[Rfam]
RNA sequence: AGAAUGAAACUUAUAUACUCUCGUAUAAAGCCGGGGAUAGGGCCCGGAAGUCUCUACCCGAGAACCGUAAAUUUUCGGACUACGAGUGAAUACGUCAUAGGA
Numbered sequence: 001a002g003a004a005u006g007a008a009a010c011u012u013a014u015a016u017a018c019u020c021u022c023g024u025a026u027a028a029a030g031c032c033g034g035g036g037a038u039a040g041g042g043c044c045c046g047g048a049a050g051u052c053u054c055u056a057c058c059c060g061a062g063a064a065c066c067g068u069a070a071a072u073u074u075u076c077g078g079a080c081u082a083c084g085a086g087u088g089a090a091u092a093c094g095u096c097a098u099a100g101g102a
Base pairs, nucleotide, nucleotide: 018088020086021085022084023083024082025081031047032046033045034044035043058078059077060076061075062074063073064072